[Rfam]
RNA sequence: AGCUUUGAGCGGUGGCAGCAUCGUAGCCAAUGAGGUUUAUCCGAGGGGCGGUUAUUGCUAACUGAAAACUUUUCCCAAUACCCCCACCAUGACGGCUUGAAAUACAGUCGGCAUUUGCAACUUUUGACAGUCUCUACGGAGA
Numbered sequence: 001a002g003c004u005u006u007g008a009g010c011g012g013u014g015g016c017a018g019c020a021u022c023g024u025a026g027c028c029a030a031u032g033a034g035g036u037u038u039a040u041c042c043g044a045g046g047g048g049c050g051g052u053u054a055u056u057g058c059u060a061a062c063u064g065a066a067a068a069c070u071u072u073u074c075c076c077a078a079u080a081c082c083c084c085c086a087c088c089a090u091g092a093c094g095g096c097u098u099g100a101a102a103u104a105c106a107g108u109c110g111g112c113a114u115u116u117g118c119a120a121c122u123u124u125u126g127a128c129a130g131u132c133u134c135u136a137c138g139g140a141g142a
Stems, first nucleotide, its partner, number of pairs: 020052005027046002034042002085117002089114003093110005131142004
Background: The record is a 142-nucleotide RNA sequence from Rattus norvegicus, which matches "U4 spliceosomal RNA" in Rfam. Its family is annotated with U4 snRNP and spliceosomal tri-snRNP complex assembly in the Gene Ontology. The match comes from Rfam's covariance-model search (95 bits). Lineage of the source: Eukaryota > Tetrapoda > Boreoeutheria > Glires > Rattus. The family's RNA type in Rfam is spliceosomal small nuclear RNA. Its Rfam clan is "U4 clan".